Overview
Rfam assigns this 173-nucleotide RNA from Clostridium celatum to the family "Lysine riboswitch aptamer". Taxonomically the source falls in Clostridium celatum (Bacteria, Bacillati, Bacillota, Clostridium).
[Rfam]
RNA sequence: UAUUUAGAUAGAGGUGCGGUACUUAAGAGUACUACUAAGGAUUUAAGCAUGUUAAAUUAGUAUGAAAGGAUUUAUCGCCGAAGCAUAUAACAAAAGCUUUAAUGUUAUAUAGCUGGAAGUAUGUAUAAUAUGCAUAUUUCUGUCACAUUAUUAUGUGAUGAGCUAUCAUUUAA
Number, nucleotide and partner (000 for none) at each position: 001u000002a000003u000004u000005u000006a000007g167008a166009u165010a164011g163012a000013g000014g000015u000016g078017c077018g076019g075020u074021a073022c000023u000024u070025a000026a000027g000028a000029g000030u000031a000032c000033u062034a061035c060036u059037a058038a057039g000040g000041a000042u000043u000044u000045a000046a000047g000048c000049a000050u000051g000052u000053u000054a000055a000056a000057u038058u037059a036060g035061u034062a033063u000064g000065a000066a000067a000068g000069g000070a024071u000072u000073u021074a020075u019076c018077g017078c016079c000080g000081a000082a114083g113084c112085a110086u109087a108088u107089a106090a105091c104092a103093a000094a000095a000096g000097c000098u000099u000100u000101a000102a000103u092104g091105u090106u089107a088108u087109a086110u085111a000112g084113c083114u082115g141116g140117a139118a138119g137120u136121a135122u134123g133124u132125a131126u000127a000128a000129u000130a000131u125132g124133c123134a122135u121136a120137u119138u118139u117140c116141u115142g000143u158144c157145a156146c155147a154148u153149u000150a000151u000152u000153a148154u147155g146156u145157g144158a143159u000160g000161a000162g000163c011164u010165a009166u008167c007168a000169u000170u000171u000172a000173a000